[Rfam]
RNA sequence: UGGAAUCAAAACAAUGAAAGCCCUACCUCUCUUCCAUCCUUGCGGCUCCAAUGACCGCGCCAGUACGAAUUGCUUUACAAACACCUG
Numbered sequence: 001u002g003g004a005a006u007c008a009a010a011a012c013a014a015u016g017a018a019a020g021c022c023c024u025a026c027c028u029c030u031c032u033u034c035c036a037u038c039c040u041u042g043c044g045g046c047u048c049c050a051a052u053g054a055c056c057g058c059g060c061c062a063g064u065a066c067g068a069a070u071u072g073c074u075u076u077a078c079a080a081a082c083a084c085c086u087g
Base pairs, nucleotide, nucleotide: 035067039063040062041059042058043057044056045055047053
RNA: BsrC
Organism: Paenibacillus sp. yr247